[Rfam]
RNA sequence: GCAAAUGGCGCGCCGAAUCCCUUGUGGUACGGAGGAACCAACUUCGGGGGUGAAUCCUGACCGGCGCCGGGUACGGGCGGCCGCGACGGCGGGGUUGUCCGUGUACGGUACGCGGUUGGACAGGCCGCAGCCGGUCCAAGGUAGGUUUUGUCUUUUUACCGAACCCGUCAGCUAACUCCGGAGGCGUAAAAAGAAAGGAGUG
Numbered sequence: 001g002c003a004a005a006u007g008g009c010g011c012g013c014c015g016a017a018u019c020c021c022u023u024g025u026g027g028u029a030c031g032g033a034g035g036a037a038c039c040a041a042c043u044u045c046g047g048g049g050g051u052g053a054a055u056c057c058u059g060a061c062c063g064g065c066g067c068c069g070g071g072u073a074c075g076g077g078c079g080g081c082c083g084c085g086a087c088g089g090c091g092g093g094g095u096u097g098u099c100c101g102u103g104u105a106c107g108g109u110a111c112g113c114g115g116u117u118g119g120a121c122a123g124g125c126c127g128c129a130g131c132c133g134g135u136c137c138a139a140g141g142u143a144g145g146u147u148u149u150g151u152c153u154u155u156u157u158a159c160c161g162a163a164c165c166c167g168u169c170a171g172c173u174a175a176c177u178c179c180g181g182a183g184g185c186g187u188a189a190a191a192a193g194a195a196a197g198g199a200g201u202g
Stems, first nucleotide, its partner, number of pairs: 011186004019027002030180005039047001048166003056141003144160003
RNA: c-di-AMP riboswitch aptamer (ydaO/yuaA leader)
Organism: Desulfotomaculum copahuensis